[Rfam]
RNA: Bacterial small signal recognition particle RNA
RNA sequence: GAAGGCUCCCUUUGGACGCUGUUCUUCGUGAACCCGGUCAGAUCCGGAAGGAAGCAGCCGUGACGAAUGGAUUGCGGGUCAGAGUGGGCCUUCUAC
Numbered sequence: 001g002a003a004g005g006c007u008c009c010c011u012u013u014g015g016a017c018g019c020u021g022u023u024c025u026u027c028g029u030g031a032a033c034c035c036g037g038u039c040a041g042a043u044c045c046g047g048a049a050g051g052a053a054g055c056a057g058c059c060g061u062g063a064c065g066a067a068u069g070g071a072u073u074g075c076g077g078g079u080c081a082g083a084g085u086g087g088g089c090c091u092u093c094u095a096c
Stems, first nucleotide, its partner, number of pairs: 004090005010084005017076003021072002025067005035060004043052003